[Rfam]
The record is a 110-nucleotide sequence from Arabidopsis lyrata, which matches "MIR862 microRNA precursor family" in Rfam.
Rfam's curators put it in the seed alignment.
Its family is annotated with miRNA-mediated post-transcriptional gene silencing and RISC complex in the Gene Ontology.
RNA sequence: ACAGUAAUCUUCCAAUAGGUCUAGCAUGUGCUGAAACUGUGUGUUGUGUGUACAAUGUUCUCAUAUACACACAGUUUCAGCACAUGCUGGAUCUACUUGAAGACUACUGU
Dot-bracket structure: ((((((.(((((...(((((((((((((((((((((((((((((......................)))))))))))))))))))))))))))))...))))).))))))
Numbered sequence: 001a002c003a004g005u006a007a008u009c010u011u012c013c014a015a016u017a018g019g020u021c022u023a024g025c026a027u028g029u030g031c032u033g034a035a036a037c038u039g040u041g042u043g044u045u046g047u048g049u050g051u052a053c054a055a056u057g058u059u060c061u062c063a064u065a066u067a068c069a070c071a072c073a074g075u076u077u078c079a080g081c082a083c084a085u086g087c088u089g090g091a092u093c094u095a096c097u098u099g100a101a102g103a104c105u106a107c108u109g110u
Stems, first nucleotide, its partner, number of pairs: 001110006008103005016095029